Overview: Shown here is an 81-nucleotide RNA from Virgibacillus pantothenticus, a member of the family "Group II catalytic intron D1-D4-1". A reference for the family is Bonen and Vogel (2001), "The ins and outs of group II introns", Trends Genet. Pairs were carried over by alignment from the consensus structure. Lineage of the source: Bacteria > Bacillota > Bacilli > Caryophanales > Virgibacillus. Rfam's curators write: Group II introns are found in rRNA, tRNA and mRNA of organelles in fungi, plants and protists, and also in mRNA in bacteria.
RNA sequence: CAACCAAAGCGGGGACGUUUUGGUGAAUCACAAGAAGUCAGCAGAGGUCAUAGUAAUGUUAACUGACGAAACAUGAAGGAC
Numbered sequence: 001c002a003a004c005c006a007a008a009g010c011g012g013g014g015a016c017g018u019u020u021u022g023g024u025g026a027a028u029c030a031c032a033a034g035a036a037g038u039c040a041g042c043a044g045a046g047g048u049c050a051u052a053g054u055a056a057u058g059u060u061a062a063c064u065g066a067c068g069a070a071a072c073a074u075g076a077a078g079g080a081c
Stems, first nucleotide, its partner, number of pairs: 001025002004023008038045002047081003056074005